[Rfam]
The record is a 162-nucleotide RNA sequence from Propithecus coquereli, which matches "U1 spliceosomal RNA" in Rfam. The family is grouped with related families in Rfam's "U1 clan". The organism belongs to Propithecus, within Eukaryota. Its family is annotated with pre-mRNA 5'-splice site binding, mRNA 5'-splice site recognition and U1 snRNP in the Gene Ontology. It scores 101 bits against the family's covariance model.

RNA sequence: AUACUUAUCUGGCAGGGGAGAUAGUAUGAUCAUCAACAUGGUUUUCUCAGGGUGAGGCUCAUCCAUUGCACUCUGAGUGUACUGACCCCUACAAUUUCUUCAAAUAUGGGGACUCCACUGCAUAAUCUGUGGUACUGGGGGUUGCAUUUGUGCUUUACCCUA
Numbered sequence: 001a002u003a004c005u006u007a008u009c010u011g012g013c014a015g016g017g018g019a020g021a022u023a024g025u026a027u028g029a030u031c032a033u034c035a036a037c038a039u040g041g042u043u044u045u046c047u048c049a050g051g052g053u054g055a056g057g058c059u060c061a062u063c064c065a066u067u068g069c070a071c072u073c074u075g076a077g078u079g080u081a082c083u084g085a086c087c088c089c090u091a092c093a094a095u096u097u098c099u100u101c102a103a104a105u106a107u108g109g110g111g112a113c114u115c116c117a118c119u120g121c122a123u124a125a126u127c128u129g130u131g132g133u134a135c136u137g138g139g140g141g142u143u144g145c146a147u148u149u150g151u152g153c154u155u156u157a158c159c160c161u162a
Stems, first nucleotide, its partner, number of pairs: 012121004016048006023042001025040003049090004054086001056083002060079003064075001094114001095112001096110002100106001137161004141156001144153003
Dot-bracket structure: ...........((((((((((.(.(((..........))).)))))))((((.(.((..(((.(..........).)))..))..)))))...((((..(.....)..)).).)...))))...............(((((..(((....)))..).)))).